[Rfam]
RNA: Lysine riboswitch aptamer
Organism: Acetitomaculum ruminis
RNA sequence: CGUUUAGGUAGAGGUUGCGCGUCUCAUAAGUAGGAUAUUGGAUGUAUCAGGUACAGUUGAAGAUAUCUGAAAGGGUGAAGCGCCGAAAGAUGGAUUUUCCCUGAGAUUUCCAUCUUGGGCAUAUGGUUAAUAGCCAUAUGACUGUCAUCUUUAUUUUAAAAAUAUUGAUGGAGAGCUAUCACGAAA
Dot-bracket structure: ......(((((.....((((.((.(.......(((((((......................)))))))......).)).))))...((((((((..((......))..))))))))((.((((((((.....)))))))).)).(((((.................)))))....)))))......
Numbered sequence: 001c002g003u004u005u006a007g008g009u010a011g012a013g014g015u016u017g018c019g020c021g022u023c024u025c026a027u028a029a030g031u032a033g034g035a036u037a038u039u040g041g042a043u044g045u046a047u048c049a050g051g052u053a054c055a056g057u058u059g060a061a062g063a064u065a066u067c068u069g070a071a072a073g074g075g076u077g078a079a080g081c082g083c084c085g086a087a088a089g090a091u092g093g094a095u096u097u098u099c100c101c102u103g104a105g106a107u108u109u110c111c112a113u114c115u116u117g118g119g120c121a122u123a124u125g126g127u128u129a130a131u132a133g134c135c136a137u138a139u140g141a142c143u144g145u146c147a148u149c150u151u152u153a154u155u156u157u158a159a160a161a162a163u164a165u166u167g168a169u170g171g172a173g174a175g176c177u178a179u180c181a182c183g184a185a186a
Stems, first nucleotide, its partner, number of pairs: 007180005017083004022078002025075001033068007087116008097106002117143002120140008145171005